Annotation: Shown here is a 62-nucleotide RNA from Chrysochloris asiatica, a member of the family "Selenocysteine insertion sequence 1". Rfam links the family to the GO term selenocysteine incorporation. The literature on the family includes a 2002 paper in Biochimie by Lambert et al., "A survey of metazoan selenocysteine insertion sequences". The organism belongs to Chrysochloris, within Eukaryota.
RNA sequence: GUUUCAUUAAUGAUGGUGUUCCUCUAAACCUGAGUGCAGGAACACCUGAUGUCCUGGGAAGU
Numbered sequence: 001g002u003u004u005c006a007u008u009a010a011u012g013a014u015g016g017u018g019u020u021c022c023u024c025u026a027a028a029c030c031u032g033a034g035u036g037c038a039g040g041a042a043c044a045c046c047u048g049a050u051g052u053c054c055u056g057g058g059a060a061g062u
Stems, first nucleotide, its partner, number of pairs: 001062005015046009029036001